[Rfam]
Nucleotides: 066
Stems, first nucleotide, its partner, number of pairs: 010025004016057006033047004
Number, partner (000 for none) and nucleotide at each position: 001000a002000a003000u004000u005000u006000a007000a008000u009000g010025g011024g012023u013022u014000a015000u016057g017056g018055a019054g020053u021052u022013a023012a024011c025010c026000c027000u028000a029000a030000a031000c032000c033047g034046c035045u036044u037000u038000a039000u040000u041000u042000u043000a044036a045035a046034g047033c048000u049000a050000a051000u052021g053020a054019c055018u056017c057016c058000u059000a060000c061000a062000c063000a064000a065000a066000a

Shown here is a 66-nucleotide sequence from Sarcina ventriculi, a member of the family "Fluoride riboswitch aptamer (crcB RNA motif)". The literature on the family includes a 2012 paper in Science by Baker et al., "Widespread genetic switches and toxicity resistance proteins for fluoride". The match comes from Rfam's covariance-model search (58 bits). The family's consensus secondary structure is taken from published work.